Shown here is a 539-nucleotide sequence from Drosophila busckii, a member of the family "Bicoid 3'-UTR regulatory element". The base pairs follow the family's consensus structure, which is taken from published work. A search with the family's covariance model found it, with a score of 202 bits.
RNA sequence: GCUAUUAAGCUUUCCAAUGCAUUUUCAACUGUUCAUUUAGUUUAAGCUAAAACUUUCUUUGUGAAAUGUUCUUUGUAUUCAACAUUCUUUGACUGGGCAUGCACCUAAGCCCAUUGUAUGCCCGGCCAAACAAUGUUGUUACCAGUCUGGGCUUCAGUUGAACGCUUUACAGACAAAGUUUACUUCAGAAAAUUUACAUGCAAUAUUUCAGUUGCUGGCAUAACUUGGCAUAGCUUCUAAACUGUACUAAUCGAAAUGCAAAAUGUUUCUCCUGCUAAUAAUUGCUUGACUUAUUUAAGUCUGCCAUUAUUAGUCGCGGAUUGAACGUUUAAACAAUAAUAAUCGUUAGAGUAUUUUUAAAAGAAAGCUAUGCUUGGGAUUUCAUGUUGUAAUUUAACAUUCUUUGUCUAAGAAUUAUUUAUAAAUUGCUUCAACAUGCAUGCAAAUCGCUAUACUAACAAUUGAUGCACACGUUUAUAUUACUUUUAAAUUUUCUUUUUAACAACAAUUUAAAAUGCAUUGGAACAUAGCUUAGUGGC
Numbered sequence: 001g002c003u004a005u006u007a008a009g010c011u012u013u014c015c016a017a018u019g020c021a022u023u024u025u026c027a028a029c030u031g032u033u034c035a036u037u038u039a040g041u042u043u044a045a046g047c048u049a050a051a052a053c054u055u056u057c058u059u060u061g062u063g064a065a066a067u068g069u070u071c072u073u074u075g076u077a078u079u080c081a082a083c084a085u086u087c088u089u090u091g092a093c094u095g096g097g098c099a100u101g102c103a104c105c106u107a108a109g110c111c112c113a114u115u116g117u118a119u120g121c122c123c124g125g126c127c128a129a130a131c132a133a134u135g136u137u138g139u140u141a142c143c144a145g146u147c148u149g150g151g152c153u154u155c156a157g158u159u160g161a162a163c164g165c166u167u168u169a170c171a172g173a174c175a176a177a178g179u180u181u182a183c184u185u186c187a188g189a190a191a192a193u194u195u196a197c198a199u200g201c202a203a204u205a206u207u208u209c210a211g212u213u214g215c216u217g218g219c220a221u222a223a224c225u226u227g228g229c230a231u232a233g234c235u236u237c238u239a240a241a242c243u244g245u246a247c248u249a250a251u252c253g254a255a256a257u258g259c260a261a262a263a264u265g266u267u268u269c270u271c272c273u274g275c276u277a278a279u280a281a282u283u284g285c286u287u288g289a290c291u292u293a294u295u296u297a298a299g300u301c302u303g304c305c306a307u308u309a310u311u312a313g314u315c316g317c318g319g320a321u322u323g324a325a326c327g328u329u330u331a332a333a334c335a336a337u338a339a340u341a342a343u344c345g346u347u348a349g350a351g352u353a354u355u356u357u358u359a360a361a362a363g364a365a366a367g368c369u370a371u372g373c374u375u376g377g378g379a380u381u382u383c384a385u386g387u388u389g390u391a392a393u394u395u396a397a398c399a400u401u402c403u404u405u406g407u408c409u410a411a412g413a414a415u416u417a418u419u420u421a422u423a424a425a426u427u428g429c430u431u432c433a434a435c436a437u438g439c440a441u442g443c444a445a446a447u448c449g450c451u452a453u454a455c456u457a458a459c460a461a462u463u464g465a466u467g468c469a470c471a472c473g474u475u476u477a478u479a480u481u482a483c484u485u486u487u488a489a490a491u492u493u494u495c496u497u498u499u500u501a502a503c504a505a506c507a508a509u510u511u512a513a514a515a516u517g518c519a520u521u522g523g524a525a526c527a528u529a530g531c532u533u534a535g536u537g538g539c
Stems, first nucleotide, its partner, number of pairs: 001539004007533005012525002015522006024513002027510002030507004052179005058173001060171002063168003067164004075142003080138007089129003096123002098120002101117003198474003209467002212464001214459001216457002220453003224377002227374001229372006235365002243359002250347001252345003261330008270320003274314003278310005378448001381446001383442003393425004397418001399415005
Dot-bracket structure: ((((..(((((((.((((((...((.((.((((..................(((((.(.((.(((.((((....(((..(((((((..(((....((((.(((...........))).)).))...)))..))))))).)))..................)))).))).)).).)))))..................(((........((.(.(.((..(((.((.(.((((((((......((.....(.(((......((((((((.(((.(((.(((((.......................))))).)))...)))..))))))))............))).)..........))....)).)))))).).))(..(.(((.......(((((.(((((.......)))))..)...))))..............)))...).)..)))..)).)....).))....))).............................)))).)).))...)))))).))...)))))..))))
Rfam classes the family as a cis-regulatory element.
Lineage of the source: Eukaryota > Arthropoda > Insecta > Pterygota > Dorsilopha.
For this family Rfam cites "Secondary structure of the 3' UTR of bicoid mRNA" (Brunel and Ehresmann, Biochimie, 2004).
From the family's description: This family represents the core structure of the bicoid 3'-UTR and consists of domains II, III, IV and V which are known to be essential for correct transport and localisation of bicoid mRNA during oocyte and embryo differentiation.